[Rfam]
RNA sequence: AAUACAGAUAGAGGUGCGGUUUUCAUCAGUACCGGUUGGAAGGGUCCGCAGACCCGAUAAUCACCCGGGAAAGGGACCUCCGCCGAAGCCGGUGCUUGUUGCGGAAAGACCGUGCUGGACGCCGUCGGAAAAUAUCCCAGCGUCUGUCAUCAGCGGAAACGCCGGUGGAGAGCUAUUCUGUUU
Numbered sequence: 001a002a003u004a005c006a007g008a009u010a011g012a013g014g015u016g017c018g019g020u021u022u023u024c025a026u027c028a029g030u031a032c033c034g035g036u037u038g039g040a041a042g043g044g045u046c047c048g049c050a051g052a053c054c055c056g057a058u059a060a061u062c063a064c065c066c067g068g069g070a071a072a073g074g075g076a077c078c079u080c081c082g083c084c085g086a087a088g089c090c091g092g093u094g095c096u097u098g099u100u101g102c103g104g105a106a107a108g109a110c111c112g113u114g115c116u117g118g119a120c121g122c123c124g125u126c127g128g129a130a131a132a133u134a135u136c137c138c139a140g141c142g143u144c145u146g147u148c149a150u151c152a153g154c155g156g157a158a159a160c161g162c163c164g165g166u167g168g169a170g171a172g173c174u175a176u177u178c179u180g181u182u183u
Base pairs, nucleotide, nucleotide: 007177008176009175010174011173016083017082018081019080023076024075032068033067034066035065037063038062039061087116088115089114090112091111092110093109096106097105117145118144119143120142121141122140124138127137128136129135147168148167149166150165151164153162
The record is a 183-nucleotide RNA from Butyricicoccus sp. TM10-16AC, which matches "Lysine riboswitch aptamer" in Rfam.